Notes:
Shown here is an 81-nucleotide RNA sequence from Variovorax sp., a member of the family "SAH (S-adenosyl-L-homocysteine) riboswitch aptamer". Gene Ontology terms of the family: regulation of gene expression and S-adenosylhomocysteine metabolic process. Lineage of the source: Bacteria > Betaproteobacteria > Burkholderiales > Comamonadaceae > Variovorax. A search with the family's covariance model found it, with a score of 52 bits.
RNA sequence: GCUCCCAAGGAGCGUUGCAACAUCCCCCGCGCGGGCAUGUCAGGCUUGGGAUUCGAGUCCCCGCAACGACGCUCACCUGCU
Numbered sequence: 001g002c003u004c005c006c007a008a009g010g011a012g013c014g015u016u017g018c019a020a021c022a023u024c025c026c027c028c029g030c031g032c033g034g035g036c037a038u039g040u041c042a043g044g045c046u047u048g049g050g051a052u053u054c055g056a057g058u059c060c061c062c063g064c065a066a067c068g069a070c071g072c073u074c075a076c077c078u079g080c081u
Base pairs, nucleotide, nucleotide: 003051004050005049006048007047008046021039022038023037025035026034